[Rfam]
RNA: Glycine riboswitch aptamer
RNA sequence: GGACGACCCCUUGGAGAGAUUCAAUCCGUUAAGGCGGAAAAUGAACGCCGAAGGCGAAAAUGUAACAGAGACACAAUGUUAUGUGAAACGCUCAGGCAAAAGGACAGGGGAGAAAAG
Numbered sequence: 001g002g003a004c005g006a007c008c009c010c011u012u013g014g015a016g017a018g019a020u021u022c023a024a025u026c027c028g029u030u031a032a033g034g035c036g037g038a039a040a041a042u043g044a045a046c047g048c049c050g051a052a053g054g055c056g057a058a059a060a061u062g063u064a065a066c067a068g069a070g071a072c073a074c075a076a077u078g079u080u081a082u083g084u085g086a087a088a089c090g091c092u093c094a095g096g097c098a099a100a101a102g103g104a105c106a107g108g109g110g111a112g113a114a115a116a117g
Stems, first nucleotide, its partner, number of pairs: 008110006020045004047097003050093002054091003060084008